The family of this 84-nucleotide RNA from Bacillus sp. NRRL B-14911 is "ZMP/ZTP riboswitch aptamer (pfl RNA motif)".

RNA sequence: UAAAGGCGCAGUGACUGACGACGAUAGUGGAAGAAACCACAGUGGAGCUGCGUGCAUAUAUAGCCGGUCGUCUGGGCAGCCAGC
Numbered sequence: 001u002a003a004a005g006g007c008g009c010a011g012u013g014a015c016u017g018a019c020g021a022c023g024a025u026a027g028u029g030g031a032a033g034a035a036a037c038c039a040c041a042g043u044g045g046a047g048c049u050g051c052g053u054g055c056a057u058a059u060a061u062a063g064c065c066g067g068u069c070g071u072c073u074g075g076g077c078a079g080c081c082a083g084c
Stems, first nucleotide, its partner, number of pairs: 006053007015044001017072005027040004061079001063077003

The family's consensus secondary structure is taken from published work.